[Rfam]
RNA sequence: UGAUUUUUCCUGCGAGAGAGUUCACGCUACGAACCGCCGAAGAUGCAAACCUUACUGACAAGGUGAAACUUUCAGGCAAAAGGAUCAGGGAAAGGAC
Numbered sequence: 001u002g003a004u005u006u007u008u009c010c011u012g013c014g015a016g017a018g019a020g021u022u023c024a025c026g027c028u029a030c031g032a033a034c035c036g037c038c039g040a041a042g043a044u045g046c047a048a049a050c051c052u053u054a055c056u057g058a059c060a061a062g063g064u065g066a067a068a069c070u071u072u073c074a075g076g077c078a079a080a081a082g083g084a085u086c087a088g089g090g091a092a093a094g095g096a097c
Stems, first nucleotide, its partner, number of pairs: 005093008020034004036077003039073002043071001045069001049064004
RNA: Glycine riboswitch aptamer